[Rfam]
RNA: Picornavirus internal ribosome entry site (IRES)
RNA sequence: CACAGGACGCUAGUUGUGAACAAGGUGUGAAGAGCCUAUUGAGCUACAAGAGAGUCCUCCGGCCCCUGAAUGCGGCUAAUCCUAACCACGGAGCAAGUGCUCACGAACCAGUGAGUGGCUUGUCGUAACGAGCAAUUCUGUGGCGGAACCGACUACUUUGGGUGUCCGUGUUUCCUUUUUAACUUUAAAUGGCUGCUUAUGGUGACAAUCAUUGAUUGUUAUCAUAAGCCGAAUUGGAUUGGCCAUCCGGUG
Numbered sequence: 001c002a003c004a005g006g007a008c009g010c011u012a013g014u015u016g017u018g019a020a021c022a023a024g025g026u027g028u029g030a031a032g033a034g035c036c037u038a039u040u041g042a043g044c045u046a047c048a049a050g051a052g053a054g055u056c057c058u059c060c061g062g063c064c065c066c067u068g069a070a071u072g073c074g075g076c077u078a079a080u081c082c083u084a085a086c087c088a089c090g091g092a093g094c095a096a097g098u099g100c101u102c103a104c105g106a107a108c109c110a111g112u113g114a115g116u117g118g119c120u121u122g123u124c125g126u127a128a129c130g131a132g133c134a135a136u137u138c139u140g141u142g143g144c145g146g147a148a149c150c151g152a153c154u155a156c157u158u159u160g161g162g163u164g165u166c167c168g169u170g171u172u173u174c175c176u177u178u179u180u181a182a183c184u185u186u187a188a189a190u191g192g193c194u195g196c197u198u199a200u201g202g203u204g205a206c207a208a209u210c211a212u213u214g215a216u217u218g219u220u221a222u223c224a225u226a227a228g229c230c231g232a233a234u235u236g237g238a239u240u241g242g243c244c245a246u247c248c249g250g251u252g
Stems, first nucleotide, its partner, number of pairs: 005011002020026002034196002042194005050183001060168003064162003073151003080147003086143007094122004098117007123131003198226013